[Rfam]
RNA: Clostridiales-1 RNA
Organism: [Ruminococcus] lactaris
RNA sequence: AGAUGUCAGGGGCAAAAGGUCUAAGCCCACAUGAGCUUGCACACUGGUGGUAGAAUGACCUUGAGACCCGCCCCGAUAUGAGCAUAAAAGUGGGGCGUAAGCACCAUGAUAUGCGAAUAGCGGGUAGGAUUGUGGGGGUGCGUAGCACGAAACAAUCCGUUGGCAUCA
Numbered sequence: 001a002g003a004u005g006u007c008a009g010g011g012g013c014a015a016a017a018g019g020u021c022u023a024a025g026c027c028c029a030c031a032u033g034a035g036c037u038u039g040c041a042c043a044c045u046g047g048u049g050g051u052a053g054a055a056u057g058a059c060c061u062u063g064a065g066a067c068c069c070g071c072c073c074c075g076a077u078a079u080g081a082g083c084a085u086a087a088a089a090g091u092g093g094g095g096c097g098u099a100a101g102c103a104c105c106a107u108g109a110u111a112u113g114c115g116a117a118u119a120g121c122g123g124g125u126a127g128g129a130u131u132g133u134g135g136g137g138g139u140g141c142g143u144a145g146c147a148c149g150a151a152a153c154a155a156u157c158c159g160u161u162g163g164c165a166u167c168a
Stems, first nucleotide, its partner, number of pairs: 002167006010068002013065001017061005025051003030046001032043002035040001072124004077119003082114004093105002095102002127158007138148004
Dot-bracket structure: .((((((..((.(...(((((...(((..(.((.(....).))..)..))).....)))))...).))...((((.(((..((((.......((((....)).)).....))))..))).))))..(((((((....((((...))))...)))))))...)))))).